[Rfam]
RNA sequence: GUUAUCUGCUGGGGGAGCCAAUUAUGGCUGAGAGAAAUCGUAAGGAUAGAAACCCUUUGGACCUGAUCCAGGUUGUACUGGCGUAGGGAAGCGGUGAUUUGUCCAU
Numbered sequence: 001g002u003u004a005u006c007u008g009c010u011g012g013g014g015g016a017g018c019c020a021a022u023u024a025u026g027g028c029u030g031a032g033a034g035a036a037a038u039c040g041u042a043a044g045g046a047u048a049g050a051a052a053c054c055c056u057u058u059g060g061a062c063c064u065g066a067u068c069c070a071g072g073u074u075g076u077a078c079u080g081g082c083g084u085a086g087g088g089a090a091g092c093g094g095u096g097a098u099u100u101g102u103c104c105a106u
Stems, first nucleotide, its partner, number of pairs: 006094005011056004017028004037047003062087004068081004
The record is a 106-nucleotide sequence from Bacillus sp. FJAT-49736, which matches "TPP riboswitch aptamer (THI element)" in Rfam. NCBI's taxonomy places the organism under Bacteria, Bacillota, Caryophanales, Bacillaceae, Bacillus. It scores 69 bits against the family's covariance model.